Shown here is a 119-nucleotide RNA from Pelagihabitans pacificus, a member of the family "SAM riboswitch aptamer (S box leader)". The SAM riboswitch is found upstream of a number of genes which code for proteins involved in methionine or cysteine biosynthesis in Gram-positive bacteria. The SAM riboswitch acts at the level of transcription termination control. The predicted structure consists of a complex stem-loop region followed by a single stem loop terminator region. An alternative and mutually exclusive form involves bases in the 3' segment of helix 1 with those in the 5' region of helix 5 to form a structure termed the anti-terminator form. This entry represents the conserved core of the complex structure involving helices 1-4. A search with the family's covariance model found it, with a score of 70 bits.
[Rfam]
Nucleotides: 119
Base pairs, nucleotide, nucleotide: 002118003117004116005115006114007113008112013043014042015041016040017039021032022031023030026079027078028077029076044071045070046069047068049067050066051063052062053061054060075111080108
Number, partner (000 for none) and nucleotide at each position: 001000a002118a003117g004116u005115u006114a007113u008112c009000a010000a011000g012000a013043a014042a015041g016040g017039u018000g019000g020000a021032g022031g023030g024000a025000u026079u027078a028077g029076a030023c031022c032021c033000u034000a035000c036000g037000a038000a039017g040016c041015c042014u043013u044071a045070g046069c047068a048000a049067c050066c051063c052062u053061u054060u055000a056000c057000u058000u059000u060054a061053a062052a063051g064000a065000a066050g067049g068047u069046g070045c071044u072000a073000c074000a075111u076029u077028c078027u079026a080108c081000c082000u083000g084000c085000u086000a087000u088000c089000g090000g091000g092000u093000u094000c095000a096000g097000c098000c099000c100000g101000g102000u103000a104000u105000c106000c107000a108080g109000g110000c111075a112008g113007a114006u115005a116004a117003c118002u119000c